[Rfam]
RNA: eL15-Euryarchaeota ribosomal protein leader
Nucleotides: 048
Base pairs, nucleotide, nucleotide: 001015002014003013004012005011018043019042025038026037027036028035029034
Number, partner (000 for none) and nucleotide at each position: 001015c002014g003013g004012g005011a006000g007000a008000a009000a010000a011005u012004c013003c014002c015001g016000c017000a018043g019042g020000g021000a022000u023000g024000u025038g026037g027036c028035c029034u030000g031000a032000u033000a034029a035028g036027g037026c038025u039000g040000a041000a042019c043018c044000g045000u046000a047000a048000a